[Rfam]
RNA sequence: AGCAGCUCCUCGGGACGGGCCUCCCUCUGGAGGUCCCGCCCAUUGCCUCUCCUGCAUAUGAGAAAUUCGGAGUAAUCUUCACCACUGCCUCAGUCGCCUGCCUUCCCGGCAGGGUCGACGGGCCUGCCCGUAAGGGUCCGGCUUCAAUAGCUCGCAACACUGGCAUCAGAAAAGCAGGGCCUGGCGCCCCGUGCAUAUCCGCGAGGAGAAGACGGGGCAGUCGGUGUUUCCCUAUGGGAGAGCCAUUGCGGAGAUUGUGUGCGAACACUUGAGUCCAAUACGCGGCCUGGGACAGCCUCGUGAGAGGCCCACCAGAAUUCGAUUCUGAUUACUCUGUU
Numbered sequence: 001a002g003c004a005g006c007u008c009c010u011c012g013g014g015a016c017g018g019g020c021c022u023c024c025c026u027c028u029g030g031a032g033g034u035c036c037c038g039c040c041c042a043u044u045g046c047c048u049c050u051c052c053u054g055c056a057u058a059u060g061a062g063a064a065a066u067u068c069g070g071a072g073u074a075a076u077c078u079u080c081a082c083c084a085c086u087g088c089c090u091c092a093g094u095c096g097c098c099u100g101c102c103u104u105c106c107c108g109g110c111a112g113g114g115u116c117g118a119c120g121g122g123c124c125u126g127c128c129c130g131u132a133a134g135g136g137u138c139c140g141g142c143u144u145c146a147a148u149a150g151c152u153c154g155c156a157a158c159a160c161u162g163g164c165a166u167c168a169g170a171a172a173a174g175c176a177g178g179g180c181c182u183g184g185c186g187c188c189c190c191g192u193g194c195a196u197a198u199c200c201g202c203g204a205g206g207a208g209a210a211g212a213c214g215g216g217g218c219a220g221u222c223g224g225u226g227u228u229u230c231c232c233u234a235u236g237g238g239a240g241a242g243c244c245a246u247u248g249c250g251g252a253g254a255u256u257g258u259g260u261g262c263g264a265a266c267a268c269u270u271g272a273g274u275c276c277a278a279u280a281c282g283c284g285g286c287c288u289g290g291g292a293c294a295g296c297c298u299c300g301u302g303a304g305a306g307g308c309c310c311a312c313c314a315g316a317a318u319u320c321g322a323u324u325c326u327g328a329u330u331a332c333u334c335u336g337u338u
Stems, first nucleotide, its partner, number of pairs: 001338004007285002010282001017036008068327005077253004126137004139154003143150002158248002161245004177233003287315004291309001293307001

Shown here is a 338-nucleotide RNA from Neoarthrinium moseri, a member of the family "Nuclear RNase P".
Ribonuclease P (RNase P) is a ubiquitous endoribonuclease, found in archaea, bacteria and eukarya as well as chloroplasts and mitochondria.
It is annotated as a ribozyme.